[Rfam]
RNA sequence: GGGUGUGCGUACCCCGCGCAUCCCCACAACACACAAGGGACUACCUGGGUCUCCCUGCCUGGGUAGUCCUUUU
Numbered sequence: 001g002g003g004u005g006u007g008c009g010u011a012c013c014c015c016g017c018g019c020a021u022c023c024c025c026a027c028a029a030c031a032c033a034c035a036a037g038g039g040a041c042u043a044c045c046u047g048g049g050u051c052u053c054c055c056u057g058c059c060u061g062g063g064u065a066g067u068c069c070u071u072u073u
Stems, first nucleotide, its partner, number of pairs: 001023008036071015
Rfam assigns this 73-nucleotide RNA sequence to the family "ftsZ-DE RNA".
Rfam's curators put it in the seed alignment.
Pairs were carried over by alignment from the consensus structure, which is taken from published work.
The family's RNA type in Rfam is small RNA.